[Rfam]
Rfam assigns this 212-nucleotide RNA sequence from Vibrio sp. qd031 to the family "Lysine riboswitch aptamer".
Riboswitches are metabolite binding domains within certain messenger RNAs that serve as precision sensors for their corresponding targets.
The base pairs follow the family's consensus structure, which is taken from published work.
RNA sequence: AAGUGAAGUAGAGGCGCGAUACAUAUCAGUAUUGUCAAGUAGGGUGAUGCCGCUGUAACUUGAUGAAAAAGGAUGUGUCGCCGAAGUAUCAUGGAGUAUCAAGCCGUGAUGCUGGGGUUGUUUGCGAAAGUGACAACACUGCCAUAGUAAAGGUUUCAAUCUCACCUAAACUGAUUGAAGCUGUUGAUUCACUAUGGAGCGCUACUGUAGGU
Numbered sequence: 001a002a003g004u005g006a007a008g009u010a011g012a013g014g015c016g017c018g019a020u021a022c023a024u025a026u027c028a029g030u031a032u033u034g035u036c037a038a039g040u041a042g043g044g045u046g047a048u049g050c051c052g053c054u055g056u057a058a059c060u061u062g063a064u065g066a067a068a069a070a071g072g073a074u075g076u077g078u079c080g081c082c083g084a085a086g087u088a089u090c091a092u093g094g095a096g097u098a099u100c101a102a103g104c105c106g107u108g109a110u111g112c113u114g115g116g117g118u119u120g121u122u123u124g125c126g127a128a129a130g131u132g133a134c135a136a137c138a139c140u141g142c143c144a145u146a147g148u149a150a151a152g153g154u155u156u157c158a159a160u161c162u163c164a165c166c167u168a169a170a171c172u173g174a175u176u177g178a179a180g181c182u183g184u185u186g187a188u189u190c191a192c193u194a195u196g197g198a199g200c201g202c203u204a205c206u207g208u209a210g211g212u
Stems, first nucleotide, its partner, number of pairs: 007206005016081009032066008085113010114140002117137006142197007